The record is a 122-nucleotide RNA sequence from Thermotoga maritima, which matches "FMN riboswitch aptamer (RFN element)" in Rfam. Taxonomically the source falls in Thermotoga maritima (Bacteria, Thermotogota, Thermotogae, Thermotoga). The family's consensus secondary structure is taken from published work.

RNA sequence: AAACGCUCUCGGGGCAGGGUGGAAUUCCCGACCGGCGGUGAAAGCCCGCGAGCCCUCUCAGGAGGGUUGACCCGGUGGAAUUCCGGGGCCGACGGUGAAAGUCCGGAUGGGAGAGAGCGUGA
Numbered sequence: 001a002a003a004c005g006c007u008c009u010c011g012g013g014g015c016a017g018g019g020u021g022g023a024a025u026u027c028c029c030g031a032c033c034g035g036c037g038g039u040g041a042a043a044g045c046c047c048g049c050g051a052g053c054c055c056u057c058u059c060a061g062g063a064g065g066g067u068u069g070a071c072c073c074g075g076u077g078g079a080a081u082u083c084c085g086g087g088g089c090c091g092a093c094g095g096u097g098a099a100a101g102u103c104c105g106g107a108u109g110g111g112a113g114a115g116a117g118c119g120u121g122a
Base pairs, nucleotide, nucleotide: 003120004119005118006117007116008115009114010113017029018028019027031102032101033091034090035049036048037047038046044089045088052067053066054065071087072086073085074084075083093105094104095103